[Rfam]
Description
This 129-nucleotide RNA sequence from Chrysochloris asiatica belongs to the Rfam family "Small nucleolar RNA SNORA31". The match comes from Rfam's covariance-model search (50 bits). The organism belongs to Chrysochloris, within Eukaryota. The literature on the family includes a 2001 paper in EMBO J by Huttenhofer et al., "RNomics: an experimental approach that identifies 201 candidates for novel, small, non-messenger RNAs in mouse". About the family: ACA31 (SNORA31) belongs to the H/ACA class of snoRNAs which are thought to guide the sites of modification of uridines to pseudouridines. ACA31 is predicted to guide the pseudouridylation of U3713 in 28S rRNA and U218 in 18S rRNA. This family includes the mouse homologue snoMBI-161. The family has 5 seed sequences and 2,094 matches in Rfam 15.1.

RNA sequence: CUAUUUGACAGACCUGGUGCAGUUACUGACUGUUUUUAAAGUUUACACUACAGAUGCGAGAAAAAAGUUCCUUGCGCUUUCUGUCUGUCUACUUUUGUGGCAGCCAAGAUUGAACAGGGGAAUACAGGU
Numbered sequence: 001c002u003a004u005u006u007g008a009c010a011g012a013c014c015u016g017g018u019g020c021a022g023u024u025a026c027u028g029a030c031u032g033u034u035u036u037u038a039a040a041g042u043u044u045a046c047a048c049u050a051c052a053g054a055u056g057c058g059a060g061a062a063a064a065a066a067g068u069u070c071c072u073u074g075c076g077c078u079u080u081c082u083g084u085c086u087g088u089c090u091a092c093u094u095u096u097g098u099g100g101c102a103g104c105c106a107a108g109a110u111u112g113a114a115c116a117g118g119g120g121a122a123u124a125c126a127g128g129u
Base pairs, nucleotide, nucleotide: 001053002052006047007046010044011043012042013041017035019033020032021031022030023029069121070120071119072118073117077112080109081108082107085103086102087101088100089099